RNA sequence: AAAGAUAACUUCAUAUGAACUCGUAUAAUUUUGGGGAUAUGGCCCAUAAGUUUCUACCGGACGACCGUAUGAAUCGACCGACUAUGAGUGAAAAGCGCAUCUAG
Dot-bracket structure: ..................(((((((...((.((((.......)))).))........(((.(((.........))).)))..)))))))...............
Notes: Shown here is a 104-nucleotide RNA sequence from Paenibacillus sp. OAS669, a member of the family "Purine riboswitch aptamer". The source organism's lineage runs through Bacteria, Bacillota, Bacilli, Caryophanales and Paenibacillus. For this family Rfam cites "Adenine riboswitches and gene activation by disruption of a transcription terminator" (Mandal and Breaker, Nat Struct Mol Biol, 2004). It scores 74 bits against the family's covariance model.